[Rfam]
RNA sequence: GGAAGGCCUCUUGCUCAAAUGAGUAUUCCACAAUCUUCUUAGAGGAAGACAUAAUUUUCCACUUAAACGUCGUUUCAAUAGUUUACCUUCAUUUCUUUCAGUAGUCAGUCUCUCUAACAGUUGGAAUGGAUACUCAUUUAGGCAAGAUGCUUUGC
Number, nucleotide and partner (000 for none) at each position: 001g000002g000003a000004a152005g151006g150007c149008c000009u000010c146011u145012u144013g143014c142015u141016c000017a139018a138019a137020u136021g135022a134023g133024u132025a131026u130027u129028c000029c128030a127031c000032a000033a000034u000035c000036u000037u000038c000039u000040u000041a000042g000043a000044g000045g000046a000047a000048g000049a000050c000051a000052u000053a000054a000055u000056u000057u000058u000059c000060c000061a000062c000063u000064u000065a000066a000067a000068c000069g000070u000071c000072g000073u000074u000075u000076c000077a000078a000079u000080a000081g000082u000083u000084u000085a000086c000087c000088u000089u000090c000091a000092u000093u000094u000095c000096u000097u000098u000099c000100a000101g000102u000103a000104g000105u000106c000107a000108g000109u000110c000111u000112c000113u000114c000115u000116a000117a000118c000119a000120g000121u000122u000123g000124g000125a000126a000127u030128g029129g027130a026131u025132a024133c023134u022135c021136a020137u019138u018139u017140a000141g015142g014143c013144a012145a011146g010147a000148u000149g007150c006151u005152u004153u000154g000155c000